RNA sequence: GCCGGGCACGGUGGCUUGUGCCUGUAAUCCAAGCUCCGGGGAGGCUGAGGCUGGCGGACCGCUGAGCCCGGGGGUUCGAGGCUGCAGGGGGCUGUGCCGAGUGGGCGUCCAAGCUAAGGCCGGCAUCGAUAUGGUGGUCCUGGGGGAGCCGGGGGCUACCAGGUCGCCUAAGGAGGGGUGAACCGGCCCAGGUCGGAGACGGAGCAGGUUAAAGCUCCCGUGGCGGUCGGUAGCGGGACCGCGCCUGUGAACAGACCCUGUAGCUGAGCCCGGGUGACAGGGCGGGACGCAGCCUCUU
Numbered sequence: 001g002c003c004g005g006g007c008a009c010g011g012u013g014g015c016u017u018g019u020g021c022c023u024g025u026a027a028u029c030c031a032a033g034c035u036c037c038g039g040g041g042a043g044g045c046u047g048a049g050g051c052u053g054g055c056g057g058a059c060c061g062c063u064g065a066g067c068c069c070g071g072g073g074g075u076u077c078g079a080g081g082c083u084g085c086a087g088g089g090g091g092c093u094g095u096g097c098c099g100a101g102u103g104g105g106c107g108u109c110c111a112a113g114c115u116a117a118g119g120c121c122g123g124c125a126u127c128g129a130u131a132u133g134g135u136g137g138u139c140c141u142g143g144g145g146g147a148g149c150c151g152g153g154g155g156c157u158a159c160c161a162g163g164u165c166g167c168c169u170a171a172g173g174a175g176g177g178g179u180g181a182a183c184c185g186g187c188c189c190a191g192g193u194c195g196g197a198g199a200c201g202g203a204g205c206a207g208g209u210u211a212a213a214g215c216u217c218c219c220g221u222g223g224c225g226g227u228c229g230g231u232a233g234c235g236g237g238a239c240c241g242c243g244c245c246u247g248u249g250a251a252c253a254g255a256c257c258c259u260g261u262a263g264c265u266g267a268g269c270c271c272g273g274g275u276g277a278c279a280g281g282g283c284g285g286g287a288c289g290c291a292g293c294c295u296c297u298u
Base pairs, nucleotide, nucleotide: 001045002044003043004023005022006021007020008019009018010017011016028042029041030040047296048295049294050293051292052291053290059285060284061283062282063281066275067274068273069272070271071270072269077268080265081264082263083262084261085260086259087258088257089256092254093253094252095251097249101248102247103246104245105244106243107242108241109237110236113234114233115232116231118228119227120226121225122224124222125221126220127166128165129164130163132161133160134159135158136157137156138155139154140153141152143150144149167173168172175218176217177216178215179214185210186209187208188207193202194201195200